[Rfam]
RNA sequence: AAAUCUAUUUAUCAUUUCUCUCAUAUAUCCCUAGUAAUAAGGUCUAGGAGUCUCUACCAAACAACCGUAAAUUGUUUGACUAUGAGUGAAAUUUACUCAAGU
Numbered sequence: 001a002a003a004u005c006u007a008u009u010u011a012u013c014a015u016u017u018c019u020c021u022c023a024u025a026u027a028u029c030c031c032u033a034g035u036a037a038u039a040a041g042g043u044c045u046a047g048g049a050g051u052c053u054c055u056a057c058c059a060a061a062c063a064a065c066c067g068u069a070a071a072u073u074g075u076u077u078g079a080c081u082a083u084g085a086g087u088g089a090a091a092u093u094u095a096c097u098c099a100a101g102u
Base pairs, nucleotide, nucleotide: 018088020086021085022084023083024082025081030048031047032046033045034044058078059077060076061075062074063073064072
Shown here is a 102-nucleotide RNA from Garciella nitratireducens, a member of the family "Purine riboswitch aptamer".